[Rfam]
Description
A member of the RNA family "Bacterial RNase P class A" from Paenalicyclobacillus mengziensis, 439 nucleotides long. Pairs were carried over by alignment from the consensus structure, which is taken from published work.
RNA sequence: AAAGUAAGCUGGGCAAUUGCCGGUGCAGUGCCGAAAGGCCGCACGGGAGGAAAGUCCGAGCUCCACAGGGCAGGGUGCCGGAUAACGUCCGGCGGGAGCAAUCCUAGGGAUAGUGCCACAGAAAUGUAGACCGCCGAUGGCCGUGCAAACGGAUCAGGCAAGGAUGCAACGGUGCGGUAAGAGCGCACCAGCAACCUGGAGACAGGUUGGCUAGGUAAACCCCACCUGGAGCAAGACCGGAUAGGAGCGCGCACGUGGCUGCCCGUCACGCGCUCGGGUAGGUCGCUUGAGCAUACUGGCAACAGCAUGCCUAGAUAGAUAAUUGCCGCCCCAACGUGCGAGGCAUGGGGGCGCCGUAUGCGGCUUUGCCGCAUACGGCCGCGUAGAUGCCGAUUGCAGCACAGGGGAACAGAACUCGGCUUAUAGGCUUGCUUUCCGA
Dot-bracket structure: ((((((((((((((((((.((.((((.(..........).)))).))....[[[.[[[[[((((...[[[[.((((((((((.....)))))(((((....)))).)((...(((((.............(((((....(((((....))))..).)))..)).......((((((.......)))))).((((((((....))))))).)..)))..)))))))))))))...((((......((((((....(((((.]]]]))))))))))).....))))......((((.(((....))).))))..........))))))).......................................................................................]]]]]]]].).))))))))))....
Numbered sequence: 001a002a003a004g005u006a007a008g009c010u011g012g013g014c015a016a017u018u019g020c021c022g023g024u025g026c027a028g029u030g031c032c033g034a035a036a037g038g039c040c041g042c043a044c045g046g047g048a049g050g051a052a053a054g055u056c057c058g059a060g061c062u063c064c065a066c067a068g069g070g071c072a073g074g075g076u077g078c079c080g081g082a083u084a085a086c087g088u089c090c091g092g093c094g095g096g097a098g099c100a101a102u103c104c105u106a107g108g109g110a111u112a113g114u115g116c117c118a119c120a121g122a123a124a125u126g127u128a129g130a131c132c133g134c135c136g137a138u139g140g141c142c143g144u145g146c147a148a149a150c151g152g153a154u155c156a157g158g159c160a161a162g163g164a165u166g167c168a169a170c171g172g173u174g175c176g177g178u179a180a181g182a183g184c185g186c187a188c189c190a191g192c193a194a195c196c197u198g199g200a201g202a203c204a205g206g207u208u209g210g211c212u213a214g215g216u217a218a219a220c221c222c223c224a225c226c227u228g229g230a231g232c233a234a235g236a237c238c239g240g241a242u243a244g245g246a247g248c249g250c251g252c253a254c255g256u257g258g259c260u261g262c263c264c265g266u267c268a269c270g271c272g273c274u275c276g277g278g279u280a281g282g283u284c285g286c287u288u289g290a291g292c293a294u295a296c297u298g299g300c301a302a303c304a305g306c307a308u309g310c311c312u313a314g315a316u317a318g319a320u321a322a323u324u325g326c327c328g329c330c331c332c333a334a335c336g337u338g339c340g341a342g343g344c345a346u347g348g349g350g351g352c353g354c355c356g357u358a359u360g361c362g363g364c365u366u367u368g369c370c371g372c373a374u375a376c377g378g379c380c381g382c383g384u385a386g387a388u389g390c391c392g393a394u395u396g397c398a399g400c401a402c403a404g405g406g407g408a409a410c411a412g413a414a415c416u417c418g419g420c421u422u423a424u425a426g427g428c429u430u431g432c433u434u435u436c437c438g439a
Stems, first nucleotide, its partner, number of pairs: 001435010011424001012327007020047002023044004028039001052422003056419005061231004068264004073227005078092005093107001094105004108222002113220002115216003131163002133159003140155001141152004171189006191211001192209007235284004245275006255269005291310004296305003

By type it is a ribozyme. Taxonomically the source falls in Paenalicyclobacillus (Bacteria, Bacillati, Bacilli, Alicyclobacillaceae). On this family, see Frank and Pace, Annu Rev Biochem 1998: "Ribonuclease P: unity and diversity in a tRNA processing ribozyme".